[Rfam]
RNA: SAM riboswitch aptamer (S box leader)
Organism: Megasphaera elsdenii
RNA sequence: CUUUCAUCAAGAGCAGUCGAGGGAAUGGCCCGAUGACGCUGCGGCAACCCCCUAUCGGGAUAGGUGCCAAGUCCAGCGGUAUAUACCGGCAGAUGAACG
Number, nucleotide and partner (000 for none) at each position: 001c099002u000003u097004u096005c095006a094007u093008c092009a000010a000011g000012a000013g042014c041015a040016g039017u038018c000019g000020a000021g031022g030023g029024a000025a000026u075027g074028g073029c023030c022031c021032g000033a000034u000035g000036a000037c000038g017039c016040u015041g014042c013043g068044g067045c066046a065047a000048c064049c063050c000051c059052c058053u057054a000055u000056c000057g053058g052059g051060a000061u000062a000063g049064g048065u046066g045067c044068c043069a000070a000071g000072u091073c028074c027075a026076g000077c088078g087079g086080u085081a000082u000083a000084u000085a080086c079087c078088g077089g000090c000091a072092g008093a007094u006095g005096a004097a003098c000099g001